[Rfam]
RNA sequence: ACGUAGGCUUAGUCUAGUGGUUACUUCGAUACUGUAUAUUCCCAUGUCGCUACCACGGGCGCAAUCCUGCGUUUUU
Numbered sequence: 001a002c003g004u005a006g007g008c009u010u011a012g013u014c015u016a017g018u019g020g021u022u023a024c025u026u027c028g029a030u031a032c033u034g035u036a037u038a039u040u041c042c043c044a045u046g047u048c049g050c051u052a053c054c055a056c057g058g059g060c061g062c063a064a065u066c067c068u069g070c071g072u073u074u075u076u
Stems, first nucleotide, its partner, number of pairs: 002071006012060004017056004027049005
Shown here is a 76-nucleotide RNA sequence from Nephila pilipes, a member of the family "Vault RNA".
The match comes from Rfam's covariance-model search (42 bits).
This family of RNAs are found as part of the enigmatic vault ribonucleoprotein complex. The complex consists of a major vault protein (MVP), two minor vault proteins (VPARP and TEP1), and several small untranslated RNA molecules. It has been suggested that the vault complex is involved in drug resistance.
The source organism's lineage runs through Eukaryota, Protostomia, Panarthropoda, Arthropoda and Nephila.
Rfam 15.1 lists 2,873 matches to the family in 431 species.